[Rfam]
RNA sequence: AUACAUAUAUUACAAAAAACUCGUAUAAAUCGGUAAUAUGGUCCGAGUGUUUCUACCUGCUAACCGUAAAAUAGCAGACUACGAGGAUCUGUUAUAAAUAU
Numbered sequence: 001a002u003a004c005a006u007a008u009a010u011u012a013c014a015a016a017a018a019a020c021u022c023g024u025a026u027a028a029a030u031c032g033g034u035a036a037u038a039u040g041g042u043c044c045g046a047g048u049g050u051u052u053c054u055a056c057c058u059g060c061u062a063a064c065c066g067u068a069a070a071a072u073a074g075c076a077g078a079c080u081a082c083g084a085g086g087a088u089c090u091g092u093u094a095u096a097a098a099u100a101u
Base pairs, nucleotide, nucleotide: 020085021084022083023082024081025080030046031045032044033043057077058076059075060074061073062072
RNA: Purine riboswitch aptamer
Organism: Clostridium celatum